Shown here is a 77-nucleotide RNA sequence from Xanthomonas oryzae, a member of the family "Xanthomonas sRNA sX9". For this family Rfam cites "Genome-wide transcriptome analysis of the plant pathogen Xanthomonas identifies sRNAs with putative virulence functions" (Schmidtke et al., Nucleic Acids Res, 2011). The family's RNA type in Rfam is small RNA. The family's consensus secondary structure was predicted with RNAalifold. The organism belongs to Xanthomonas oryzae pv. oryzae, within Bacteria.
RNA sequence: AGGCACCACCCUUGCACUGUGGUUCUGAGCGCGCCGUCCGCGCCCAGCUGACAGCUGCUCGCUCCGUGUUGUUAGCC
Numbered sequence: 001a002g003g004c005a006c007c008a009c010c011c012u013u014g015c016a017c018u019g020u021g022g023u024u025c026u027g028a029g030c031g032c033g034c035c036g037u038c039c040g041c042g043c044c045c046a047g048c049u050g051a052c053a054g055c056u057g058c059u060c061g062c063u064c065c066g067u068g069u070u071g072u073u074a075g076c077c
Stems, first nucleotide, its partner, number of pairs: 003015003020036004025031001048075007